[Rfam]
RNA sequence: CUUCACCGAGCCGAGCAGCAGCGGCGCCUCCCGGUUCGCCCCGUAGGUGGCGAGCAGCGCCUGCGCCUC
Numbered sequence: 001c002u003u004c005a006c007c008g009a010g011c012c013g014a015g016c017a018g019c020a021g022c023g024g025c026g027c028c029u030c031c032c033g034g035u036u037c038g039c040c041c042c043g044u045a046g047g048u049g050g051c052g053a054g055c056a057g058c059g060c061c062u063g064c065g066c067c068u069c
Base pairs, nucleotide, nucleotide: 015025016024028065030063032059033058037054039052041050042049043048
This 69-nucleotide sequence from Kitasatospora aureofaciens belongs to the Rfam family "ASpks TB sRNA". Pairs were carried over by alignment from the consensus structure, which is taken from published work. Taxonomically the source falls in Kitasatospora (Bacteria, Bacillati, Actinomycetota, Actinomycetes). On this family, see Arnvig and Young, Mol Microbiol 2009: "Identification of small RNAs in Mycobacterium tuberculosis". It is annotated as an antisense RNA. A search with the family's covariance model found it, with a score of 59 bits.